[Rfam]
This 72-nucleotide RNA from Medicago truncatula belongs to the Rfam family "MIR5272 microRNA precursor family". Rfam links the family to the GO terms RISC complex and miRNA-mediated post-transcriptional gene silencing. Pairs were carried over by alignment from the consensus structure, which was predicted with RNAalifold.

RNA sequence: UUGGAUGUGAAUCAAUUGUGUUUGUAUACACUUAUUAAAAGUGAUUCUCAUGAGUUAAUGUUGUUUGCAUAG
Numbered sequence: 001u002u003g004g005a006u007g008u009g010a011a012u013c014a015a016u017u018g019u020g021u022u023u024g025u026a027u028a029c030a031c032u033u034a035u036u037a038a039a040a041g042u043g044a045u046u047c048u049c050a051u052g053a054g055u056u057a058a059u060g061u062u063g064u065u066u067g068c069a070u071a072g
Stems, first nucleotide, its partner, number of pairs: 011059002014056004020051002024047001026045002029043005